[Rfam]
RNA sequence: CAAACGGGCGGCGACUGGCGCUGAACGUGGGGCCACACCACGGGGGAGCCGCCCGGACUCUGACAGAUCGCGCGCCUGGGUCGGACGU
Numbered sequence: 001c002a003a004a005c006g007g008g009c010g011g012c013g014a015c016u017g018g019c020g021c022u023g024a025a026c027g028u029g030g031g032g033c034c035a036c037a038c039c040a041c042g043g044g045g046g047a048g049c050c051g052c053c054c055g056g057a058c059u060c061u062g063a064c065a066g067a068u069c070g071c072g073c074g075c076c077u078g079g080g081u082c083g084g085a086c087g088u
Base pairs, nucleotide, nucleotide: 005055006054007053008052009051010050011049012048015045016044017076018075019074020073021072027041028040029039030038066082067081068080069079